Notes: Shown here is an 84-nucleotide sequence from Rhipicephalus microplus, a member of the family "mir-184 microRNA precursor family". The family has 66 seed sequences and 948 matches in Rfam 15.1. For this family Rfam cites "The developmental miRNA profiles of zebrafish as determined by small RNA cloning" (Chen et al., Genes Dev, 2005). Pairs were carried over by alignment from the consensus structure, which was predicted with PFOLD.
RNA sequence: GUUUCCACGUUUCCUUAUCAUUCGACUGUCCAGACUGCUGUUUUCCGAGGCCUGGACGGAGAACUGAUAAGGGCUUGUGGUGAC
Number, nucleotide and partner (000 for none) at each position: 001g000002u000003u000004u000005c000006c000007a000008c000009g000010u000011u000012u073013c072014c071015u070016u069017a068018u067019c066020a065021u063022u062023c061024g000025a000026c059027u058028g000029u000030c055031c054032a000033g000034a000035c000036u000037g000038c000039u000040g000041u000042u000043u000044u000045c000046c000047g000048a000049g000050g000051c000052c000053u000054g031055g030056a000057c000058g027059g026060a000061g023062a022063a021064c000065u020066g019067a018068u017069a016070a015071g014072g013073g012074c000075u000076u000077g000078u000079g000080g000081u000082g000083a000084c000